Rfam assigns this 87-nucleotide RNA sequence from Rhodopseudomonas palustris to the family "Glycine riboswitch aptamer". This family represents the bacterial glycine riboswitch.
Nucleotides: 087
Base pairs, nucleotide, nucleotide: 006086007085008084009083010082012081013080014079021036022035023034024033038071039070040069041067042066045065046064047063051059052058
Number, partner (000 for none) and nucleotide at each position: 001000c002000u003000a004000a005000g006086u007085c008084g009083c010082g011000u012081c013080g014079g015000g016000a017000g018000a019000g020000a021036u022035c023034g024033g025000c026000c027000g028000c029000a030000a031000g032000g033024c034023c035022g036021g037000c038071g039070c040069c041067g042066a043000a044000g045065g046064a047063g048000c049000a050000a051059c052058c053000g054000c055000c056000c057000c058052g059051g060000a061000a062000a063047c064046u065045c066042u067041c068000a069040g070039g071038c072000a073000a074000a075000c076000g077000g078000a079014c080013c081012g082010c083009g084008c085007g086006g087000c